Overview: SAM riboswitch aptamer (S box leader): a 110-nucleotide sequence from Scopulibacillus darangshiensis.
[Rfam]
RNA sequence: CUCUUAUCAAGAGAGGUGGAGGGAACGGCCCGAUGAAGCCCGGCAACCGCCAACAAAUCGUUGGAAAGGUGCCAAUUCCUGCAGGGGUAUUUUGCCUUGGCAGAUAAGAG
Numbered sequence: 001c002u003c004u005u006a007u008c009a010a011g012a013g014a015g016g017u018g019g020a021g022g023g024a025a026c027g028g029c030c031c032g033a034u035g036a037a038g039c040c041c042g043g044c045a046a047c048c049g050c051c052a053a054c055a056a057a058u059c060g061u062u063g064g065a066a067a068g069g070u071g072c073c074a075a076u077u078c079c080u081g082c083a084g085g086g087g088u089a090u091u092u093u094g095c096c097u098u099g100g101c102a103g104a105u106a107a108g109a110g
Base pairs, nucleotide, nucleotide: 001110002109003108004107005106006105007104008103013041015040016039017038021031022030023029027079028078042073043072044071045070047069048068050064051063052062077102082099083098084097085096086095
Dot-bracket structure: ((((((((....(.(((...(((...[[)))......))))((((.((.(((.........)))...))))))...(]]..(((((........)))))..)))))))))